[Rfam]
RNA sequence: AUCCUCCCUAUCCCUUUCCCAUUAGAUCGGAAUACUGAUCUCGUGGUCAAGAAGGAGGGAAAGUAAAAUGGAAGCUGGCCCUCACAUCUUUGCCUGGUCAAAUCCCGCAUUGAACUGGGCUGGCUUGAAACAGUU
Numbered sequence: 001a002u003c004c005u006c007c008c009u010a011u012c013c014c015u016u017u018c019c020c021a022u023u024a025g026a027u028c029g030g031a032a033u034a035c036u037g038a039u040c041u042c043g044u045g046g047u048c049a050a051g052a053a054g055g056a057g058g059g060a061a062a063g064u065a066a067a068a069u070g071g072a073a074g075c076u077g078g079c080c081c082u083c084a085c086a087u088c089u090u091u092g093c094c095u096g097g098u099c100a101a102a103u104c105c106c107g108c109a110u111u112g113a114a115c116u117g118g119g120c121u122g123g124c125u126u127g128a129a130a131c132a133g134u135u
Stems, first nucleotide, its partner, number of pairs: 003058005019046004025040004075123007090113002
Rfam assigns this 135-nucleotide RNA sequence from Anolis carolinensis to the family "Small nucleolar RNA SNORA61". Gene Ontology terms of the family: nucleolus and RNA processing. ACA61 is a member of the H/ACA class of snoRNA that guide the sites of modification of uridines to pseudouridines. It is annotated as an H/ACA-box small nucleolar RNA.